RNA sequence: GUGUUUUUCAUAGUAUUAGAUUUAAGGUUAAUAAGGAUUGGCUGUCUGGGAUAGAUAGCCUUUUUUUAUG
Numbered sequence: 001g002u003g004u005u006u007u008u009c010a011u012a013g014u015a016u017u018a019g020a021u022u023u024a025a026g027g028u029u030a031a032u033a034a035g036g037a038u039u040g041g042c043u044g045u046c047u048g049g050g051a052u053a054g055a056u057a058g059c060c061u062u063u064u065u066u067u068a069u070g
Base pairs, nucleotide, nucleotide: 040060041059042058043057044056045055046054
A member of the RNA family "Bacteroidetes FopS (family of paralogous sRNAs)" from Bacteroides reticulotermitis, 70 nucleotides long.
Pairs were carried over by alignment from the consensus structure, which is taken from published work.
From the family's description: The RNA-binding protein RbpB and BTncRNA_FopS sRNA are involved in the post-transcription regulation of polysaccharide utilisation loci (PUL).
Rfam links the family to the GO term sRNA-mediated gene silencing.
NCBI's taxonomy places the organism under Bacteria, Pseudomonadati, Bacteroidaceae, Bacteroides, Bacteroides reticulotermitis.
It is annotated as a small RNA.
For this family Rfam cites "The global RNA-binding protein RbpB is a regulator of polysaccharide utilization in Bacteroides thetaiotaomicron" (Ruttiger et al., Nat Commun, 2025).
It scores 78 bits against the family's covariance model.